[Rfam]
RNA sequence: GUAAAGCUGUGCGUUAGGGAUUGUAGCGGCAUCCUUUUUUGCCAUGAAAAGCAAAAAAGAUAUAGCGGAAAGCCCGACCCUUG
Numbered sequence: 001g002u003a004a005a006g007c008u009g010u011g012c013g014u015u016a017g018g019g020a021u022u023g024u025a026g027c028g029g030c031a032u033c034c035u036u037u038u039u040u041g042c043c044a045u046g047a048a049a050a051g052c053a054a055a056a057a058a059g060a061u062a063u064a065g066c067g068g069a070a071a072g073c074c075c076g077a078c079c080c081u082u083g
Stems, first nucleotide, its partner, number of pairs: 017075003021071002026066002031061003037056006
The family of this 83-nucleotide RNA from Pseudotamlana haliotis is "Flavo-1 RNA". Pairs were carried over by alignment from the consensus structure, which is taken from published work. The family's RNA type in Rfam is small RNA.